[Rfam]
RNA sequence: AACCACUGGAGAGAUUCGUUUGAACACCGAAGGAGCAAGCCUAGAAGGGUGAAACUCUCAGGUAAAAGGACAGUGGCUUAAUA
Numbered sequence: 001a002a003c004c005a006c007u008g009g010a011g012a013g014a015u016u017c018g019u020u021u022g023a024a025c026a027c028c029g030a031a032g033g034a035g036c037a038a039g040c041c042u043a044g045a046a047g048g049g050u051g052a053a054a055c056u057c058u059c060a061g062g063u064a065a066a067a068g069g070a071c072a073g074u075g076g077c078u079u080a081a082u083a
Stems, first nucleotide, its partner, number of pairs: 001078001003076006015024003026063003029059002033057003039050002
This 83-nucleotide RNA sequence from Erysipelatoclostridium sp. AM42-17 belongs to the Rfam family "Glycine riboswitch aptamer". Rfam's curators write: This family represents the bacterial glycine riboswitch. The organism belongs to Thomasclavelia, within Bacteria.